[Rfam]
RNA sequence: GGCUGAACUCGGCCGGGAAGCCAGGCACUUCCUGUUACCCGAAGUCUAUAUGCGGGGGCGACAGCCAGGGAAGACCAACCGGACUUCUGCCAGGCCCCAUGGAGUCCGUGAAAUUCUGUCCCUUUGGAUCGAAGGACCCGCAGGACAAACUCAAAGGAGACUGCCUUGCAGGCUUGCCAGAAGACUCCGCCAGGUCCGGAAGGGAGCAACGGUAUUCUGGACUCUUGAUGCUGAAGGGGUGCGGGACAGAGACAAAAUGGGGGGAACCUGACAGGACAUUCGGCCCAACCCUGGUGCGUUCAGCA
Dot-bracket structure: .(((((((...(((((((((.......))))))....((((...........)))))))....(((((((..(..(........(((((.((((((((((...(((.......((((((((((((((((((((((.((.(((((.((..(((....)))..)).))))).)).)..((((((....(((.....(((....))).....)))..)))))).)).))))).))))))))..))))))....)))...))))))....)))).)))))......)..)..)))))))..))))))).
Numbered sequence: 001g002g003c004u005g006a007a008c009u010c011g012g013c014c015g016g017g018a019a020g021c022c023a024g025g026c027a028c029u030u031c032c033u034g035u036u037a038c039c040c041g042a043a044g045u046c047u048a049u050a051u052g053c054g055g056g057g058g059c060g061a062c063a064g065c066c067a068g069g070g071a072a073g074a075c076c077a078a079c080c081g082g083a084c085u086u087c088u089g090c091c092a093g094g095c096c097c098c099a100u101g102g103a104g105u106c107c108g109u110g111a112a113a114u115u116c117u118g119u120c121c122c123u124u125u126g127g128a129u130c131g132a133a134g135g136a137c138c139c140g141c142a143g144g145a146c147a148a149a150c151u152c153a154a155a156g157g158a159g160a161c162u163g164c165c166u167u168g169c170a171g172g173c174u175u176g177c178c179a180g181a182a183g184a185c186u187c188c189g190c191c192a193g194g195u196c197c198g199g200a201a202g203g204g205a206g207c208a209a210c211g212g213u214a215u216u217c218u219g220g221a222c223u224c225u226u227g228a229u230g231c232u233g234a235a236g237g238g239g240u241g242c243g244g245g246a247c248a249g250a251g252a253c254a255a256a257a258u259g260g261g262g263g264g265a266a267c268c269u270g271a272c273a274g275g276a277c278a279u280u281c282g283g284c285c286c287a288a289c290c291c292u293g294g295u296g297c298g299u300u301c302a303g304c305a
Stems, first nucleotide, its partner, number of pairs: 002304007012059003015033006038056004064295007073286001076283001085276005091270004095262006104253003114246006120238008128229005133223002135174001137172002140169005146163002150159003177220006187212003195204003